RNA sequence: UCCCUUGUGCUAAGGUGCAUCUAGUGCAGUUAGUGAUGUAGUUUAGUAUCUACUGCCCUAAAUGCUCCUUCCGGCACAAGCCG
Numbered sequence: 001u002c003c004c005u006u007g008u009g010c011u012a013a014g015g016u017g018c019a020u021c022u023a024g025u026g027c028a029g030u031u032a033g034u035g036a037u038g039u040a041g042u043u044u045a046g047u048a049u050c051u052a053c054u055g056c057c058c059u060a061a062a063u064g065c066u067c068c069u070u071c072c073g074g075c076a077c078a079a080g081c082c083g
Base pairs, nucleotide, nucleotide: 004080005079006078007077009075010074011073013069014068015067017065018064019063020062022060023059024058026056027055029054031052032051033050

Record summary
Shown here is an 83-nucleotide RNA sequence from Monodelphis domestica, a member of the family "mir-17 microRNA precursor family". Rfam links the family to the GO terms miRNA-mediated post-transcriptional gene silencing and RISC complex. About the family: This family represents the microRNA (miRNA) precursor mir-17, family, which includes mir-20, mir-91, and mir-103. miRNAs are transcribed as ~70nt precursors (modelled here) and subsequently processed by the Dicer enzyme to give a ~22nt product. Taxonomically the source falls in Monodelphis (Eukaryota, Eumetazoa, Tetrapoda, Theria). Rfam 15.1 lists 4,687 matches to the family in 648 species. Pairs were carried over by alignment from the consensus structure, which was predicted with RNAalifold.